[Rfam]
RNA sequence: AUAAAUUUAAUCCGUUUCACUCAUAUAAUCGCAGGGAUAUGGCCUGCAAGUUUCUACCGGAUUGCCGAAAACAAUCUGACUAUGAGUAGGUAAUGAAUCGCG
Numbered sequence: 001a002u003a004a005a006u007u008u009a010a011u012c013c014g015u016u017u018c019a020c021u022c023a024u025a026u027a028a029u030c031g032c033a034g035g036g037a038u039a040u041g042g043c044c045u046g047c048a049a050g051u052u053u054c055u056a057c058c059g060g061a062u063u064g065c066c067g068a069a070a071a072c073a074a075u076c077u078g079a080c081u082a083u084g085a086g087u088a089g090g091u092a093a094u095g096a097a098u099c100g101c102g
Stems, first nucleotide, its partner, number of pairs: 019087007029049001031047005058078007